Description: Small nucleolar RNA SNORD83: a 77-nucleotide RNA from Parambassis ranga. The source organism's lineage runs through Eukaryota, Eumetazoa, Deuterostomia, Clupeocephala and Parambassis. The family's RNA type in Rfam is C/D-box small nucleolar RNA. It scores 42 bits against the family's covariance model. Its family is annotated with nucleolus and RNA processing in the Gene Ontology. The family's consensus secondary structure was predicted with PFOLD. On this family, see Jady and Kiss, Nucleic Acids Res 2000: "Characterisation of the U83 and U84 small nucleolar RNAs: two novel 2'-O-ribose methylation guide RNAs that lack complementarities to ribosomal RNAs".

RNA sequence: GCCACAUGAUGAGCUGAAUAGCUGCAGCAGCCCUCGGGCCAUGAUGACCUGCUAUCUAUCACCCUUUCCUGAUGGCU
Numbered sequence: 001g002c003c004a005c006a007u008g009a010u011g012a013g014c015u016g017a018a019u020a021g022c023u024g025c026a027g028c029a030g031c032c033c034u035c036g037g038g039c040c041a042u043g044a045u046g047a048c049c050u051g052c053u054a055u056c057u058a059u060c061a062c063c064c065u066u067u068c069c070u071g072a073u074g075g076c077u
Stems, first nucleotide, its partner, number of pairs: 001076004030039003